[Rfam]
Nucleotides: 193
Stems, first nucleotide, its partner, number of pairs: 018153003021148007030123007039084002042081007054070004058065002086116005092110001094108005124141002128137003159180006
Number, partner (000 for none) and nucleotide at each position: 001000c002000c003000u004000a005000u006000g007000c008000u009000u010000c011000c012000g013000c014000c015000a016000g017000c018153g019152g020151u021148c022147c023146c024145c025144u026143c027142u028000u029000u030123g031122g032121g033120g034119c035118c036117c037000c038000a039084g040083c041000u042081u043080c044079a045078g046077u047076g048075c049000a050000g051000a052000c053000a054070a055069g056068g057067g058065g059064u060000u061000u062000c063000g064059a065058c066000c067057u068056c069055c070054u071000c072000g073000c074000u075048g076047u077046g078045c079044u080043g081042g082000c083040g084039c085000c086116c087115g088114a089113a090112c091000u092110c093000u094108g095107a096106u097105u098104c099000c100000u101000u102000g103000c104098g105097a106096a107095u108094c109000c110092g111000u112090g113089u114088u115087c116086g117036g118035g119034g120033c121032c122031c123030c124141g125140a126000u127000u128137g129136g130135c131000u132000u133000c134000g135130g136129c137128c138000c139000u140125u141124c142027g143026g144025a145024g146023g147022g148021g149000u150000g151020g152019c153018c154000c155000a156000c157000c158000a159180c160179c161178u162177c163176g164175a165000a166000a167000c168000c169000c170000g171000u172000c173000c174000c175164u176163c177162g178161a179160g180159g181000a182000a183000c184000g185000a186000c187000u188000c189000g190000a191000u192000g193000a
Shown here is a 193-nucleotide RNA sequence, a member of the family "psaA RNA". It is one of the family's seed sequences.